A member of the RNA family "Bacteroides-1 RNA" from Bacteroides sp. CAG:189, 85 nucleotides long. The match comes from Rfam's covariance-model search (80 bits).
RNA sequence: AUGCAAAUCAGCCUGAAGCUCUUUAUGCAUAUGCGAAUACCCAUAAUGAAGCGACCGUAUGCCUCCCCGGCAUAGACAGGUAAGA
Numbered sequence: 001a002u003g004c005a006a007a008u009c010a011g012c013c014u015g016a017a018g019c020u021c022u023u024u025a026u027g028c029a030u031a032u033g034c035g036a037a038u039a040c041c042c043a044u045a046a047u048g049a050a051g052c053g054a055c056c057g058u059a060u061g062c063c064u065c066c067c068c069g070g071c072a073u074a075g076a077c078a079g080g081u082a083a084g085a
Base pairs, nucleotide, nucleotide: 018052019051020050023046024045025044026043027042030039031038032037058074059073060072061071062070063069